Shown here is a 60-nucleotide sequence from Mus musculus, a member of the family "U7 small nuclear RNA". Taxonomically the source falls in Mus (Eukaryota, Bilateria, Dipnotetrapodomorpha, Amniota). Pairs were carried over by alignment from the consensus structure, which was predicted with PFOLD. The match comes from Rfam's covariance-model search (35 bits).

RNA sequence: AGCUAACAUAGGUCUUUUAGAAUUUUUCUAGCAGGUUUUCUGACUGGUCAAAAAACACAU
Dot-bracket structure: ..................................(((((.(((....))).)))))....